[Rfam]
RNA sequence: GGCUGGUCUGAAUGUAGAGUUAUUUCAGUUGAUUGUUCAGUCAGAUAGAAUCCUUUGUUCUACCUCCCCCACCCACCUCUCUACUGCAGUUGACUAGUCUUUU
Numbered sequence: 001g002g003c004u005g006g007u008c009u010g011a012a013u014g015u016a017g018a019g020u021u022a023u024u025u026c027a028g029u030u031g032a033u034u035g036u037u038c039a040g041u042c043a044g045a046u047a048g049a050a051u052c053c054u055u056u057g058u059u060c061u062a063c064c065u066c067c068c069c070c071a072c073c074c075a076c077c078u079c080u081c082u083a084c085u086g087c088a089g090u091u092g093a094c095u096a097g098u099c100u101u102u103u
Stems, first nucleotide, its partner, number of pairs: 001099008010091002014087002016082004027065002031061001
RNA: Y RNA
Organism: Chlorocebus sabaeus